The record is a 102-nucleotide sequence from Aotus nancymaae, which matches "Y RNA" in Rfam. The family's RNA type in Rfam is non-coding RNA gene. It scores 53 bits against the family's covariance model. Lineage of the source: Eukaryota > Eumetazoa > Tetrapoda > Platyrrhini > Aotus.
RNA sequence: GGCUGGUCUGAGUGCAGUGGUGAUUAUGACUAAUUGGUCACAACCAAUUACAGAUUUACUUGUCACUUUUCUACUCCUACUGCUUCAGUUGAAUAGCCAAAA
Numbered sequence: 001g002g003c004u005g006g007u008c009u010g011a012g013u014g015c016a017g018u019g020g021u022g023a024u025u026a027u028g029a030c031u032a033a034u035u036g037g038u039c040a041c042a043a044c045c046a047a048u049u050a051c052a053g054a055u056u057u058a059c060u061u062g063u064c065a066c067u068u069u070u071c072u073a074c075u076c077c078u079a080c081u082g083c084u085u086c087a088g089u090u091g092a093a094u095a096g097c098c099a100a101a102a
Stems, first nucleotide, its partner, number of pairs: 001098005007092002010090002014086001016081005022076001028064003032060001
Overview
The family's consensus secondary structure is taken from published work.